[Rfam]
Notes
Rfam assigns this 220-nucleotide RNA from Aerosakkonema funiforme to the family "HNH endonuclease-associated RNA and ORF (HEARO) RNA". A search with the family's covariance model found it, with a score of 154 bits.

RNA sequence: GUCAAGAACUCACCGUCAACCCUAACGGGUAUGACGGGAGCUUGAAAAAGCUCGCUCCUUGACCAGACUAAGUGCUUCGCGCACUACGUUAUUCAACUCAAGAAACCUACAGAUGCGUGCCAGUUUGUAGCUCUUUCGUACAGCUUUAAACAGGUGUAACGAGUUAAACCAGUGAGUUGUACCCAACAAGGUUGAAUAACAUUGUCGAGGCAAACUUUAC
Numbered sequence: 001g002u003c004a005a006g007a008a009c010u011c012a013c014c015g016u017c018a019a020c021c022c023u024a025a026c027g028g029g030u031a032u033g034a035c036g037g038g039a040g041c042u043u044g045a046a047a048a049a050g051c052u053c054g055c056u057c058c059u060u061g062a063c064c065a066g067a068c069u070a071a072g073u074g075c076u077u078c079g080c081g082c083a084c085u086a087c088g089u090u091a092u093u094c095a096a097c098u099c100a101a102g103a104a105a106c107c108u109a110c111a112g113a114u115g116c117g118u119g120c121c122a123g124u125u126u127g128u129a130g131c132u133c134u135u136u137c138g139u140a141c142a143g144c145u146u147u148a149a150a151c152a153g154g155u156g157u158a159a160c161g162a163g164u165u166a167a168a169c170c171a172g173u174g175a176g177u178u179g180u181a182c183c184c185a186a187c188a189a190g191g192u193u194g195a196a197u198a199a200c201a202u203u204g205u206c207g208a209g210g211c212a213a214a215c216u217u218u219a220c
Base pairs, nucleotide, nucleotide: 001063002062003061004060005059006058008056010039011038014036015035021028022027040051041050042049043048066206067205068204070202071085072084073083074082075081088200089199090198091197092196093195094194095193096192097191098190103136104135107130108129109128110127111126112125113124114123115216118213119211120210121209138182139181140180141179142178143177144176145175146174150173151172153170154169155168157166158165159164
Dot-bracket structure: ((((((.(.((..((.....((....))......)).))((((....))))....).))))))..(((.((((((.....)))))..(((((((((((....((..(((((((([..[[[[.))))))))....)).(((((((((...((.(((.(((....))).))).))))))))))).......))))))))))).).)))..]]].]..]....
On this family, see Weinberg et al., Nature 2009: "Exceptional structured noncoding RNAs revealed by bacterial metagenome analysis". The source organism's lineage runs through Bacteria, Bacillati, Aerosakkonematales, Aerosakkonemataceae and Aerosakkonema funiforme.